mir-33 microRNA precursor family: a 90-nucleotide RNA from Drosophila willistoni. The base pairs follow the family's consensus structure, which was predicted with PFOLD. Rfam 15.1 lists 1,467 matches to the family in 815 species. Its family is annotated with gene silencing by miRNA and RISC complex in the Gene Ontology. For this family Rfam cites "Direct sequencing and expression analysis of a large number of miRNAs in Aedes aegypti and a multi-species survey of novel mosquito miRNAs" (Li et al., BMC Genomics, 2009). NCBI's taxonomy places the organism under Eukaryota, Protostomia, Dicondylia, Eumetabola, Sophophora.
[Rfam]
RNA sequence: CGAAGGUGCAUUGUAGUCGCAUUGUCUGUGCUCCAAAAAAAAAAAACCCCCAGUUUCUAUUCAGGCAAUACAACUGCAGUGCAAGCUUCG
Numbered sequence: 001c002g003a004a005g006g007u008g009c010a011u012u013g014u015a016g017u018c019g020c021a022u023u024g025u026c027u028g029u030g031c032u033c034c035a036a037a038a039a040a041a042a043a044a045a046a047c048c049c050c051c052a053g054u055u056u057c058u059a060u061u062c063a064g065g066c067a068a069u070a071c072a073a074c075u076g077c078a079g080u081g082c083a084a085g086c087u088u089c090g
Base pairs, nucleotide, nucleotide: 001090002089003088004087006086007083008082009081010080011079012078013077014076015075016074019071021069022068023067024066025065026064027063